[Rfam]
RNA sequence: GUGUCUGUGAUGAUGUUGUUCUCAGUUGGCCUGAAAUCUUUUUUGGAAUAUGAGGGCAACUUAAGUCACUACCUCUUCUGAGACAC
Numbered sequence: 001g002u003g004u005c006u007g008u009g010a011u012g013a014u015g016u017u018g019u020u021c022u023c024a025g026u027u028g029g030c031c032u033g034a035a036a037u038c039u040u041u042u043u044u045g046g047a048a049u050a051u052g053a054g055g056g057c058a059a060c061u062u063a064a065g066u067c068a069c070u071a072c073c074u075c076u077u078c079u080g081a082g083a084c085a086c
Base pairs, nucleotide, nucleotide: 001086002085003084004083
RNA: Small nucleolar RNA SNORD11
Organism: Buceros rhinoceros